Background:
A member of the RNA family "mir-29 microRNA precursor family" from Spodoptera littoralis, 66 nucleotides long. It scores 47 bits against the family's covariance model. From the family's description: This family represents the microRNA (miRNA) precursors mir-29. The organism belongs to Spodoptera, within Eukaryota.
Nucleotides: 066
Base pairs, nucleotide, nucleotide: 001066002065003064005061007060008059009058011056012055013054014053015052017050018049019048021047022046023045026043027042028041029040
Number, partner (000 for none) and nucleotide at each position: 001066u002065g003064a004000c005061a006000a007060c008059u009058g010000u011056a012055u013054u014053c015052g016000a017050g018049u019048g020000a021047g022046u023045g024000g025000a026043u027042a028041g029040a030000g031000u032000u033000g034000u035000g036000a037000u038000u039000c040029u041028c042027u043026a044000g045023c046022a047021c048019c049018a050017u051000u052015c053014g054013a055012a056011u057000u058009c059008a060007g061005u062000g063000c064003u065002c066001g